[Rfam]
RNA sequence: GUACAGAGAUGUGAGCAACCUCUGUAUUAGGCCAAUUUGCAGGAGUGAACCUCCUGCUAUAAUCGUUAAAUUGCGGGGACACCUUAAAGCAAUUUUAACCAAACAGACGUGGUAACAUAGUAUGUGGCACAGGUAAUGACUCGUGGUAAGGUAAAAUCAAAAUUGAUGCACGAAAGGAAAUAGGUUAUCCGCAGCCAAGUACCGUUAUUCUAAGGAAUAGAGGUAUGCAGUUCAUCGACUAAACAGCGAUUGGUGUGUUGAGUUUUAUUUUAUAUCAACAUGCUUAAGAUAUAGUCAGUCUCAAUGGAAACAUUGUA
Number, nucleotide and partner (000 for none) at each position: 001g000002u000003a000004c000005a000006g000007a000008g000009a000010u000011g000012u000013g020014a000015g000016c000017a000018a000019c000020c013021u000022c000023u000024g000025u000026a000027u000028u000029a000030g000031g000032c000033c000034a000035a000036u000037u000038u000039g000040c000041a000042g000043g000044a000045g000046u000047g000048a000049a000050c000051c000052u000053c000054c000055u000056g000057c000058u000059a000060u000061a251062a250063u249064c248065g247066u000067u245068a000069a000070a000071u000072u193073g192074c191075g190076g189077g188078g000079a000080c000081a000082c184083c183084u182085u000086a000087a000088a000089g000090c000091a000092a000093u000094u000095u000096u000097a000098a000099c000100c000101a000102a000103a000104c000105a000106g000107a000108c000109g000110u000111g000112g000113u000114a000115a000116c000117a000118u000119a000120g000121u000122a000123u000124g000125u000126g000127g000128c000129a000130c000131a000132g000133g000134u000135a000136a000137u000138g000139a000140c000141u000142c000143g000144u000145g000146g000147u000148a000149a000150g000151g000152u000153a000154a000155a000156a000157u000158c000159a000160a000161a000162a000163u000164u000165g000166a000167u000168g000169c000170a000171c000172g000173a000174a000175a000176g000177g000178a000179a000180a000181u000182a084183g083184g082185u000186u000187a000188u077189c076190c075191g074192c073193a072194g231195c230196c000197a000198a000199g226200u225201a224202c223203c000204g000205u000206u000207a000208u000209u217210c000211u215212a000213a000214g000215g211216a000217a209218u000219a000220g000221a000222g000223g202224u201225a200226u199227g000228c000229a000230g195231u194232u000233c000234a000235u297236c000237g296238a295239c294240u293241a292242a000243a000244c000245a067246g000247c065248g064249a063250u062251u061252g000253g283254u282255g281256u280257g279258u278259u277260g276261a275262g000263u000264u000265u000266u000267a000268u000269u000270u000271u000272a000273u000274a000275u261276c260277a259278a258279c257280a256281u255282g254283c253284u000285u000286a000287a000288g000289a000290u000291a000292u241293a240294g239295u238296c237297a235298g000299u000300c000301u000302c315303a314304a313305u312306g311307g000308a000309a000310a000311c306312a305313u304314u303315g302316u000317a000

A member of the RNA family "Group I catalytic intron" from Xylaria multiplex, 317 nucleotides long. Rfam describes the family as follows. Group I catalytic introns are large self-splicing ribozymes. NCBI's taxonomy places the organism under Eukaryota, Fungi, Ascomycota, sordariomyceta, Xylaria. The family's consensus secondary structure is taken from published work. The literature on the family includes a 1990 paper in Annu Rev Biochem by Cech, "Self-splicing of group I introns". The match comes from Rfam's covariance-model search (102 bits).